[Rfam]
RNA sequence: CGAGUCGGCUGGGCGGCCGCGUCGUCGUCCUCCGGGACGGCGCCGAGGAACGUCCGGGCUCCGCAGGGCAGGGUGGUGGGUAACGCCCACCCGGGGUGACCCGCGGGACAGUGCCACAGAGAGAAGACCGCCACGGACCGUCCUCGGACGGCCCGCGGUAAGGGUGAAACGGUGGUGCAAGAGACCACCAGCACCCCCGGUGACGGGGGUGGCUCGGCAAACCCCACCCGGAGCAAGACCAGACAGGCAGCGUCCGAGGGCGGCCCGCCCGAGCUGCCGGGUAGGUCGCUGGAGGCGUGCGGCGACGUACGCCCGAGAUGGAUGGUCGCCCCCUCGCCAGUGCCGGUGACGGCGGCGGGGGACAGAACCCGGCGUACAGGCCGGCUCGUCCG
Numbered sequence: 001c002g003a004g005u006c007g008g009c010u011g012g013g014c015g016g017c018c019g020c021g022u023c024g025u026c027g028u029c030c031u032c033c034g035g036g037a038c039g040g041c042g043c044c045g046a047g048g049a050a051c052g053u054c055c056g057g058g059c060u061c062c063g064c065a066g067g068g069c070a071g072g073g074u075g076g077u078g079g080g081u082a083a084c085g086c087c088c089a090c091c092c093g094g095g096g097u098g099a100c101c102c103g104c105g106g107g108a109c110a111g112u113g114c115c116a117c118a119g120a121g122a123g124a125a126g127a128c129c130g131c132c133a134c135g136g137a138c139c140g141u142c143c144u145c146g147g148a149c150g151g152c153c154c155g156c157g158g159u160a161a162g163g164g165u166g167a168a169a170c171g172g173u174g175g176u177g178c179a180a181g182a183g184a185c186c187a188c189c190a191g192c193a194c195c196c197c198c199g200g201u202g203a204c205g206g207g208g209g210u211g212g213c214u215c216g217g218c219a220a221a222c223c224c225c226a227c228c229c230g231g232a233g234c235a236a237g238a239c240c241a242g243a244c245a246g247g248c249a250g251c252g253u254c255c256g257a258g259g260g261c262g263g264c265c266c267g268c269c270c271g272a273g274c275u276g277c278c279g280g281g282u283a284g285g286u287c288g289c290u291g292g293a294g295g296c297g298u299g300c301g302g303c304g305a306c307g308u309a310c311g312c313c314c315g316a317g318a319u320g321g322a323u324g325g326u327c328g329c330c331c332c333c334u335c336g337c338c339a340g341u342g343c344c345g346g347u348g349a350c351g352g353c354g355g356c357g358g359g360g361g362a363c364a365g366a367a368c369c370c371g372g373c374g375u376a377c378a379g380g381c382c383g384g385c386u387c388g389u390c391c392g
Base pairs, nucleotide, nucleotide: 001388002387003386004385005384006383007382008381009380010379011377012330013329014328015327016326017325018324020045021044023042024041025040026039027038028037050375051374052373054372055371056370057369058368059233060232061231062230066266067265068264069263071229072228073227074226075225076090077089078088079087080086091105092103093102094101095100106224107223111222112221113218114217115216128163129162130159131158132157134155135154136153138151139150140149141148142147171189172188173187174186175185176184191213192211193210194209195208196207197206198205199204237287238286239285240284246278247277248276249275250274251273258270259269260268261267294313295312296311297310298309299308300307301306

Bacterial RNase P class A: a 392-nucleotide RNA from Pseudokineococcus lusitanus. Rfam classes the family as a ribozyme. About the family: Ribonuclease P (RNase P) is a ubiquitous endoribonuclease, found in archaea, bacteria and eukarya as well as chloroplasts and mitochondria.